RNA sequence: UGGCGGUGAUGACUAUCUUAGGACACCUUUGGAAUGACCAUGAAAUAACUCUUUCUAUUCUGAGCCAU
Number, nucleotide and partner (000 for none) at each position: 001u067002g066003g065004c064005g000006g000007u000008g000009a000010u000011g000012a000013c000014u000015a000016u000017c000018u000019u000020a000021g000022g000023a000024c000025a000026c000027c000028u000029u000030u000031g000032g000033a000034a000035u000036g000037a000038c000039c000040a000041u000042g000043a000044a000045a000046u000047a000048a000049c000050u000051c000052u000053u000054u000055c000056u000057a000058u000059u000060c000061u000062g000063a000064g004065c003066c002067a001068u000
RNA: Small nucleolar RNA SNORD58
Organism: Aegotheles bennettii